[Rfam]
RNA sequence: GACCUUGCGCAGUGGCAAUAUCGUAACCAAUGAAGGCCUCCCGAGGUGCGAUUAUUGCUAGUUGAAUAGGUUGUUCUAAAACUCAAGCUCAAUUCAUCUUAGUUUGAAUCCAUUCUUAAAUAUAAACUUGUUCAAACAA
Number, nucleotide and partner (000 for none) at each position: 001g000002a000003c000004c000005u000006u000007g000008c000009g000010c000011a000012g000013u000014g000015g000016c000017a000018a000019u000020a052021u051022c050023g049024u048025a000026a047027c046028c045029a000030a000031u000032g000033a000034a000035g041036g040037c000038c000039u000040c036041c035042c000043g000044a000045g028046g027047u026048g024049c023050g022051a021052u020053u000054a000055u000056u000057g000058c000059u000060a000061g000062u000063u000064g000065a000066a000067u000068a000069g000070g000071u000072u000073g000074u000075u000076c000077u000078a000079a000080a000081a000082c000083u000084c000085a117086a116087g115088c000089u112090c000091a000092a109093u108094u107095c106096a105097u000098c000099u000100u000101a000102g000103u000104u000105u096106g095107a094108a093109u092110c000111c000112a089113u000114u000115c087116u086117u085118a000119a000120a000121u000122a000123u000124a000125a000126a000127c000128u139129u138130g137131u136132u000133c000134a000135a000136a131137c130138a129139a128
RNA: U4 spliceosomal RNA
Organism: Rhodnius prolixus